The family of this 438-nucleotide part of an RNA from uncultured candidate division WWE3 bacterium EJ0ADIGA11YD11 is "Bacterial large subunit ribosomal RNA".
NCBI's taxonomy places the organism under Bacteria, Bacteria candidate phyla, candidate division WWE3.

RNA sequence: CUCCCCGAAACAUAUAUAGGUAUGACCUUUGCAUUUAAAGAUCGGCGAGGUAGAGAUACUGAAAGGGGAUGGGGGGCGUAAGCCUACCCACCUCUACCAAACUCCGAAUGCGUCGAUUGUGUGCAAGGAGUCAGUGAUGCGGGGCAAUCUCGUGUCACAAAAGGGUAACAACCCAGACCAUCGGCUAAGGUCCCUAAUUUUUUGCUAAGUGGGCAAGGAAGUGAAAUCGUUAAGACAGCUAGGAGGUUGGCUCAGAAGCAGCCAUCCUUUAAAGAAAGCGUAACAGCUCACUAGUUAAACGAUUUUGCACCGACGAUUUAACGGGGCUUAAGCAAAAAACCGAAGCCGUGGCUUCGUCGCAAGAUGAAGGGUAGGGGAGCUUUGAUACAGCUGUGAAGUCUCGUCGUGAGGCGAGGUGGAGCGGUAUCAAGUGAGUAU
Numbered sequence: 001c002u003c004c005c006c007g008a009a010a011c012a013u014a015u016a017u018a019g020g021u022a023u024g025a026c027c028u029u030u031g032c033a034u035u036u037a038a039a040g041a042u043c044g045g046c047g048a049g050g051u052a053g054a055g056a057u058a059c060u061g062a063a064a065g066g067g068g069a070u071g072g073g074g075g076g077c078g079u080a081a082g083c084c085u086a087c088c089c090a091c092c093u094c095u096a097c098c099a100a101a102c103u104c105c106g107a108a109u110g111c112g113u114c115g116a117u118u119g120u121g122u123g124c125a126a127g128g129a130g131u132c133a134g135u136g137a138u139g140c141g142g143g144g145c146a147a148u149c150u151c152g153u154g155u156c157a158c159a160a161a162a163g164g165g166u167a168a169c170a171a172c173c174c175a176g177a178c179c180a181u182c183g184g185c186u187a188a189g190g191u192c193c194c195u196a197a198u199u200u201u202u203u204g205c206u207a208a209g210u211g212g213g214c215a216a217g218g219a220a221g222u223g224a225a226a227u228c229g230u231u232a233a234g235a236c237a238g239c240u241a242g243g244a245g246g247u248u249g250g251c252u253c254a255g256a257a258g259c260a261g262c263c264a265u266c267c268u269u270u271a272a273a274g275a276a277a278g279c280g281u282a283a284c285a286g287c288u289c290a291c292u293a294g295u296u297a298a299a300c301g302a303u304u305u306u307g308c309a310c311c312g313a314c315g316a317u318u319u320a321a322c323g324g325g326g327c328u329u330a331a332g333c334a335a336a337a338a339a340c341c342g343a344a345g346c347c348g349u350g351g352c353u354u355c356g357u358c359g360c361a362a363g364a365u366g367a368a369g370g371g372u373a374g375g376g377g378a379g380c381u382u383u384g385a386u387a388c389a390g391c392u393g394u395g396a397a398g399u400c401u402c403g404u405c406g407u408g409a410g411g412c413g414a415g416g417u418g419g420a421g422c423g424g425u426a427u428c429a430a431g432u433g434a435g436u437a438u
Stems, first nucleotide, its partner, number of pairs: 001379006011024005026130001027128007040118008053105001054103002060099002064095004071088002073085003077082001134158010163174003178351004183347003189341003198338001200337006217311002221308010238295005244268003249263003269273001274289001278287002352369007380433001382430007390422002398417008
Record summary: Pairs were carried over by alignment from the consensus structure, which is taken from published work.